Background: The record is an 87-nucleotide RNA from Thalassotalea piscium, which matches "c-di-GMP-I riboswitch aptamer" in Rfam.
[Rfam]
RNA sequence: ACAAAGAAAAGGCAAAACACGCGAAAACGUGUUACGCAAAACCACCGGUCUAAGGGUUCGAUAACCUAUGACAGCGGAGUUACCGAG
Numbered sequence: 001a002c003a004a005a006g007a008a009a010a011g012g013c014a015a016a017a018c019a020c021g022c023g024a025a026a027a028c029g030u031g032u033u034a035c036g037c038a039a040a041a042c043c044a045c046c047g048g049u050c051u052a053a054g055g056g057u058u059c060g061a062u063a064a065c066c067u068a069u070g071a072c073a074g075c076g077g078a079g080u081u082a083c084c085g086a087g
Stems, first nucleotide, its partner, number of pairs: 012037002017032005040081003045077003048072003055066004
The source organism's lineage runs through Bacteria, Pseudomonadota, Gammaproteobacteria, Colwelliaceae and Thalassotalea. The base pairs follow the family's consensus structure, which is taken from published work. About the family: GEMM was predicted in a large-scale screen for bacterial structured RNA regulatory elements.